[Rfam]
Rfam assigns this 150-nucleotide RNA sequence from Mesorhizobium sp. NBSH29 to the family "speF leader". About the family: This family is a putative regulatory RNA structure that is found upstream of the speF gene encoding ornithine decarboxylase in Agrobacterium tumefaciens and other alpha-proteobacteria. Gene Ontology term of the family: regulation of gene expression. The family's RNA type in Rfam is cis-regulatory leader. The literature on the family includes a 2005 paper in Genome Biol by Corbino et al., "Evidence for a second class of S-adenosylmethionine riboswitches and other regulatory RNA motifs in alpha-proteobacteria". Taxonomically the source falls in Mesorhizobium (Bacteria, Alphaproteobacteria, Hyphomicrobiales, Phyllobacteriaceae).
RNA sequence: UGCCGGCUGUCCAAAAGCCGGGGUUACUGAAGAGGCACACCAUCAUUGCCGGCAGUGCGGAACGGGUUCUCCCAAUCCAAGCCAUGGCAGACAAAGCGAACCGAAGCCGGGCAGGCCUAGGUUCACCGCCGCGCGAAACGCGUUCAUGAU
Numbered sequence: 001u002g003c004c005g006g007c008u009g010u011c012c013a014a015a016a017g018c019c020g021g022g023g024u025u026a027c028u029g030a031a032g033a034g035g036c037a038c039a040c041c042a043u044c045a046u047u048g049c050c051g052g053c054a055g056u057g058c059g060g061a062a063c064g065g066g067u068u069c070u071c072c073c074a075a076u077c078c079a080a081g082c083c084a085u086g087g088c089a090g091a092c093a094a095a096g097c098g099a100a101c102c103g104a105a106g107c108c109g110g111g112c113a114g115g116c117c118u119a120g121g122u123u124c125a126c127c128g129c130c131g132c133g134c135g136a137a138a139c140g141c142g143u144u145c146a147u148g149a150u
Stems, first nucleotide, its partner, number of pairs: 001023001003021006034050004057129003082090001101110003